[Rfam]
RNA sequence: GCCACCGUAGCUCAGUUGGUAGAGCAGACGAUUCGUAAUCGUCAGGUCAAGGGUUCGAGACCCUUCGGUGGCU
Dot-bracket structure: (((((((..((((........)))).(((((.......))))).....(((((.......)))))))))))).
RNA: tRNA